[Rfam]
RNA sequence: GCACGGGGACGACCCUGCGCUUUUCCCAUCAUUAUCGGCCGGGACGACCCGC
Number, nucleotide and partner (000 for none) at each position: 001g020002c019003a000004c017005g016006g015007g014008g013009a000010c000011g000012a000013c008014c007015c006016u005017g004018c000019g002020c001021u000022u000023u000024u000025c000026c000027c000028a000029u000030c000031a000032u000033u000034a000035u000036c000037g000038g000039c000040c051041g050042g049043g048044a000045c000046g000047a000048c043049c042050c041051g040052c000
This 52-nucleotide RNA from Devosia geojensis belongs to the Rfam family "Guanidine-II riboswitch aptamer (mini-ykkC)".
The base pairs follow the family's consensus structure, which is taken from published work.
The match comes from Rfam's covariance-model search (36 bits).
Rfam links the family to the GO term regulation of gene expression.
About the family: Simpler in structure and has fewer highly conserved nucleotide positions than the ykkC-yxkD leader. Despite this each of its two stem-loop structures directly bind free guanidine. Therefore, mini-ykkC RNA motif represents a distinct class of guanidine-sensing RNAs. Its crystal structure was also determined.
NCBI's taxonomy places the organism under Bacteria, Pseudomonadati, Alphaproteobacteria, Devosiaceae, Devosia.